This 87-nucleotide RNA sequence from Pipistrellus kuhlii belongs to the Rfam family "mir-9195 microRNA precursor family". Gene Ontology terms of the family: RISC complex and miRNA-mediated post-transcriptional gene silencing.
RNA sequence: AGAGGCCCUCCGUGGCUGGGGUGGAAUGCUUGCCUCAUUGCCACAGUGAUGAAGCAAGCAUUCCGCCAGGCUGCUCACGCUGCCCCC
Numbered sequence: 001a002g003a004g005g006c007c008c009u010c011c012g013u014g015g016c017u018g019g020g021g022u023g024g025a026a027u028g029c030u031u032g033c034c035u036c037a038u039u040g041c042c043a044c045a046g047u048g049a050u051g052a053a054g055c056a057a058g059c060a061u062u063c064c065g066c067c068a069g070g071c072u073g074c075u076c077a078c079g080c081u082g083c084c085c086c087c
Stems, first nucleotide, its partner, number of pairs: 004084003012074006020067014037050005
NCBI's taxonomy places the organism under Eukaryota, Deuterostomia, Craniata, Tetrapoda, Pipistrellus. The family's consensus secondary structure was predicted with RNAalifold. The match comes from Rfam's covariance-model search (96 bits).